[Rfam]
RNA: Guanidine-II riboswitch aptamer (mini-ykkC)
Organism: Devosia soli
RNA sequence: UCGUGAGGACGACCUCCCCUGAUUGGGUGCACGUUCGGGACGACCCGA
Numbered sequence: 001u002c003g004u005g006a007g008g009a010c011g012a013c014c015u016c017c018c019c020u021g022a023u024u025g026g027g028u029g030c031a032c033g034u035u036c037g038g039g040a041c042g043a044c045c046c047g048a
Stems, first nucleotide, its partner, number of pairs: 003018001005016004035048005